[Rfam]
The record is a 121-nucleotide RNA sequence from Callosobruchus maculatus, which matches "U5 spliceosomal RNA" in Rfam. About the family: U5 RNA is a component of both types of known spliceosome. The precise function of this molecule is unknown, though it is known that the 5' loop is required for splice site selection and p220 binding, and that both the 3' stem-loop and the Sm site are important for Sm protein binding and cap methylation. Pairs were carried over by alignment from the consensus structure, which is taken from published work. It scores 103 bits against the family's covariance model. The organism belongs to Callosobruchus, within Eukaryota. A reference for the family is Zwieb (1997), "The uRNA database", Nucleic Acids Res.
RNA sequence: GCACUCUGGUUUCCCUUCAAAGCGAAUAAAUCUUUCGCCUUUUACUAAAGAUUUCCGUGGAGGGGAACAACAUAAAUGAGUCUAUAACAAAUUUUUUGUUGCCCAGUCUUAAGAUUGGGCG
Numbered sequence: 001g002c003a004c005u006c007u008g009g010u011u012u013c014c015c016u017u018c019a020a021a022g023c024g025a026a027u028a029a030a031u032c033u034u035u036c037g038c039c040u041u042u043u044a045c046u047a048a049a050g051a052u053u054u055c056c057g058u059g060g061a062g063g064g065g066a067a068c069a070a071c072a073u074a075a076a077u078g079a080g081u082c083u084a085u086a087a088c089a090a091a092u093u094u095u096u097u098g099u100u101g102c103c104c105a106g107u108c109u110u111a112a113g114a115u116u117g118g119g120c121g
Stems, first nucleotide, its partner, number of pairs: 003081004009068011028054008099121001101120006